[Rfam]
Description
This 132-nucleotide RNA sequence belongs to the Rfam family "Small nucleolar RNA SNORA20". ACA20 is a member of the H/ACA class of snoRNA that guide the sites of modification of uridines to pseudouridines. Clan: SNORA20 clan. It is one of the family's seed sequences.
RNA sequence: CUUCCCAUUUAUUUGCUGCUUGUAGUCUCACAGUGAUACGAGCAGUUAUACGCAUGGGAUAAAAUAACAUUGGGCCACUGUAAAUUGAGAUGAAGUAACCAUUUUCAUCUCUUCUGCAGGGACUAGACAUUG
Numbered sequence: 001c002u003u004c005c006c007a008u009u010u011a012u013u014u015g016c017u018g019c020u021u022g023u024a025g026u027c028u029c030a031c032a033g034u035g036a037u038a039c040g041a042g043c044a045g046u047u048a049u050a051c052g053c054a055u056g057g058g059a060u061a062a063a064a065u066a067a068c069a070u071u072g073g074g075c076c077a078c079u080g081u082a083a084a085u086u087g088a089g090a091u092g093a094a095g096u097a098a099c100c101a102u103u104u105u106c107a108u109c110u111c112u113u114c115u116g117c118a119g120g121g122a123c124u125a126g127a128c129a130u131u132g
Base pairs, nucleotide, nucleotide: 003059004058005057006056007055008054015046016045017044018043019042020041021040023038024037026036027035070126071125072124073123075121076120079118080117081116082115087111088110089109090108091107092105093104094103095102096101